This 88-nucleotide RNA sequence from Thermus scotoductus belongs to the Rfam family "Thermales-rpoB RNA".
Rfam classes the family as a cis-regulatory element.
The base pairs follow the family's consensus structure, which is taken from published work.
The source organism's lineage runs through Bacteria, Thermotogati, Deinococci, Thermales and Thermus scotoductus.

RNA sequence: UUUGUGCUCUUUGGUCGGGCCAAGGGAGCACGGUAAGAGCCAGCCGCCGCGGGGCGCGAGGUCCCGCGGAAGAACCCUGUUAGCUUAC
Numbered sequence: 001u002u003u004g005u006g007c008u009c010u011u012u013g014g015u016c017g018g019g020c021c022a023a024g025g026g027a028g029c030a031c032g033g034u035a036a037g038a039g040c041c042a043g044c045c046g047c048c049g050c051g052g053g054g055c056g057c058g059a060g061g062u063c064c065c066g067c068g069g070a071a072g073a074a075c076c077c078u079g080u081u082a083g084c085u086u087a088c
Stems, first nucleotide, its partner, number of pairs: 008027002010024005047069009